This 132-nucleotide RNA from Carnegiea gigantea belongs to the Rfam family "Small nucleolar RNA snoR74". On this family, see Marker et al., Curr Biol 2002: "Experimental RNomics: identification of 140 candidates for small non-messenger RNAs in the plant Arabidopsis thaliana". The base pairs follow the family's consensus structure, which was predicted with WAR.
RNA sequence: AAAAAAACAGUAGCCUUUCACCUUUUUUGUGGAUGGGUCUCUUGUAAACUUCAGGGAAAUCAAGUCUCAUUGUUAUUGGGUGAACCUUUUGAGAUCACAAGGAUGGAAGGUUCAGUAAACAAUGUUAUAUUC
Dot-bracket structure: ....((.......(((..................)))............))................(((((((......((((((......................))))))...)))))))........